[Rfam]
RNA sequence: CGGGCAGGCCGAGACGAUCGCGGGCGCCACUGUACGAAAGUACGGCGCAUGAGGAAAGUCCGGGCUCCACAGGACAGGGUGCCGGGCAGUUCCCGGUGAAGGCAACUUUAAGGAAAGUGCAACAGAAAAGAAAACCGCCCGCAAGGGUAAGGAUGAAAAGGCGAGGUAAGAGCUCACCGGCGAUGUGGAGACAUAUCGGCCUUGUAAACCCCAUCCGGAGCAACGUCGUGGAAAGGCAUAUCGUGGUCCGCGAGCCUUAGGAGACGGCUUGAACGUUUUAGAGAUAUUACGUCUAGAUAGAUGAUCGUCACAUACAGAACCCGGCUUACCGGUCUGCACGGAAA
Numbered sequence: 001c002g003g004g005c006a007g008g009c010c011g012a013g014a015c016g017a018u019c020g021c022g023g024g025c026g027c028c029a030c031u032g033u034a035c036g037a038a039a040g041u042a043c044g045g046c047g048c049a050u051g052a053g054g055a056a057a058g059u060c061c062g063g064g065c066u067c068c069a070c071a072g073g074a075c076a077g078g079g080u081g082c083c084g085g086g087c088a089g090u091u092c093c094c095g096g097u098g099a100a101g102g103c104a105a106c107u108u109u110a111a112g113g114a115a116a117g118u119g120c121a122a123c124a125g126a127a128a129a130g131a132a133a134a135c136c137g138c139c140c141g142c143a144a145g146g147g148u149a150a151g152g153a154u155g156a157a158a159a160g161g162c163g164a165g166g167u168a169a170g171a172g173c174u175c176a177c178c179g180g181c182g183a184u185g186u187g188g189a190g191a192c193a194u195a196u197c198g199g200c201c202u203u204g205u206a207a208a209c210c211c212c213a214u215c216c217g218g219a220g221c222a223a224c225g226u227c228g229u230g231g232a233a234a235g236g237c238a239u240a241u242c243g244u245g246g247u248c249c250g251c252g253a254g255c256c257u258u259a260g261g262a263g264a265c266g267g268c269u270u271g272a273a274c275g276u277u278u279u280a281g282a283g284a285u286a287u288u289a290c291g292u293c294u295a296g297a298u299a300g301a302u303g304a305u306c307g308u309c310a311c312a313u314a315c316a317g318a319a320c321c322c323g324g325c326u327u328a329c330c331g332g333u334c335u336g337c338a339c340g341g342a343a344a
Base pairs, nucleotide, nucleotide: 001340002339004337005336006335007334008333009332010331011329013309014308015307016306017305018304019303021051022050024048025047026046027045028044056327057326058325060324061323062322063321064320065220066219067218068217072249073248074247075246077216078215079214080213081212082096083095084094085093086092097111098109099108100107101106112211113210117209118208119205120204121203135152136151137148138147139146140145160178161177163175164174165173180200181198182197183196184195185194186193187192224266225265226264227263234257235256236255237254241253242252243251244250273292274291275290276289279286280285